RNA: Small nucleolar RNA SNORA48
RNA sequence: UACCCCUGGCAAUGGGCAAGGAGACAUAUGUUUGGUGGUGUUGCUCUUAUAUCAAUCAGGGGCAAAGCAGACAUACAGUCCUUAGUUCAUCCUAGCUUGAUGCCUGUAUUGGUGGCCAGGGCUGUUUCAUGCCUGAGGCACAUUA
Numbered sequence: 001u002a003c004c005c006c007u008g009g010c011a012a013u014g015g016g017c018a019a020g021g022a023g024a025c026a027u028a029u030g031u032u033u034g035g036u037g038g039u040g041u042u043g044c045u046c047u048u049a050u051a052u053c054a055a056u057c058a059g060g061g062g063c064a065a066a067g068c069a070g071a072c073a074u075a076c077a078g079u080c081c082u083u084a085g086u087u088c089a090u091c092c093u094a095g096c097u098u099g100a101u102g103c104c105u106g107u108a109u110u111g112g113u114g115g116c117c118a119g120g121g122c123u124g125u126u127u128c129a130u131g132c133c134u135g136a137g138g139c140a141c142a143u144u145a
Base pairs, nucleotide, nucleotide: 001064003062004061005060006059007058008057013054014053015052019048020047021046023042024041025040026039027038085139086138087137099133101131105129106128110124111123113121